[Rfam]
RNA sequence: CUGCGGUGAUGAUUGUAGAUGUGACUGACCUGGUAUUGCUGGCCUUCGGGUCUGCUCUGACUGGGAGAUGACCUCAGUUAAUCUUCUCUCUGAGCAG
Numbered sequence: 001c002u003g004c005g006g007u008g009a010u011g012a013u014u015g016u017a018g019a020u021g022u023g024a025c026u027g028a029c030c031u032g033g034u035a036u037u038g039c040u041g042g043c044c045u046u047c048g049g050g051u052c053u054g055c056u057c058u059g060a061c062u063g064g065g066a067g068a069u070g071a072c073c074u075c076a077g078u079u080a081a082u083c084u085u086c087u088c089u090c091u092g093a094g095c096a097g
Stems, first nucleotide, its partner, number of pairs: 003095002038055002041052001

Background: The family of this 97-nucleotide sequence from Mastacembelus armatus is "Z30 small nucleolar RNA". For this family Rfam cites "Purified box C/D snoRNPs are able to reproduce site-specific 2'-O-methylation of target RNA in vitro" (Galardi et al., Mol Cell Biol, 2002). Gene Ontology terms of the family: nucleolus and RNA processing. The base pairs follow the family's consensus structure, which was predicted with PFOLD. Rfam 15.1 lists 802 matches to the family in 647 species. By type it is a C/D-box small nucleolar RNA.